[Rfam]
RNA sequence: UUUCCGCUUCUUUCCUCCCUGAGCGGAAGUCUUGUCUAACCUUGAUAGAGGACGAUAAGGCAUUUUGCCCCGAUUUAAUCCCCUUAAUCGGGGCUUUUUUU
Numbered sequence: 001u002u003u004c005c006g007c008u009u010c011u012u013u014c015c016u017c018c019c020u021g022a023g024c025g026g027a028a029g030u031c032u033u034g035u036c037u038a039a040c041c042u043u044g045a046u047a048g049a050g051g052a053c054g055a056u057a058a059g060g061c062a063u064u065u066u067g068c069c070c071c072g073a074u075u076u077a078a079u080c081c082c083c084u085u086a087a088u089c090g091g092g093g094c095u096u097u098u099u100u101u
Stems, first nucleotide, its partner, number of pairs: 003027006029061007068093008
A member of the RNA family "Burkholderia RNA 7 (anti-hemB)" from Methylotenera sp., 101 nucleotides long. It is annotated as a small RNA. Rfam links the family to the GO terms bacterial biofilm matrix and protein binding. Lineage of the source: Bacteria > Pseudomonadota > Betaproteobacteria > Methylophilaceae > Methylotenera.